[Rfam]
RNA sequence: UGGCGCCGAUGCGACUGGCGUAGGUGGUUACCACCGGGGAGCACACGGAAGCGUUGGCCGUUCGCCUGGGUUAACGCU
Numbered sequence: 001u002g003g004c005g006c007c008g009a010u011g012c013g014a015c016u017g018g019c020g021u022a023g024g025u026g027g028u029u030a031c032c033a034c035c036g037g038g039g040a041g042c043a044c045a046c047g048g049a050a051g052c053g054u055u056g057g058c059c060g061u062u063c064g065c066c067u068g069g070g071u072u073a074a075c076g077c078u
Stems, first nucleotide, its partner, number of pairs: 003046001010043003015038002017066004024034004055073005
Background
ZMP/ZTP riboswitch aptamer (pfl RNA motif): a 78-nucleotide sequence from Trueperella bialowiezensis. A search with the family's covariance model found it, with a score of 43 bits.